[Rfam]
RNA sequence: CUCUUAUCAAGAGCGGUGGAGGGACCGGCCCGAGGAAACCGCGGCAACCUUCAAACAUAUUGUUUGAAAAAGGUGCCAAGUCCUGCAAAGCAUGUUUGCUUUGAAAGAUGAGAG
Numbered sequence: 001c002u003c004u005u006a007u008c009a010a011g012a013g014c015g016g017u018g019g020a021g022g023g024a025c026c027g028g029c030c031c032g033a034g035g036a037a038a039c040c041g042c043g044g045c046a047a048c049c050u051u052c053a054a055a056c057a058u059a060u061u062g063u064u065u066g067a068a069a070a071a072g073g074u075g076c077c078a079a080g081u082c083c084u085g086c087a088a089a090g091c092a093u094g095u096u097u098g099c100u101u102u103g104a105a106a107g108a109u110g111a112g113a114g
Stems, first nucleotide, its partner, number of pairs: 001114008013042005021031003025085001027083002043077004048073002050068006081106001086103006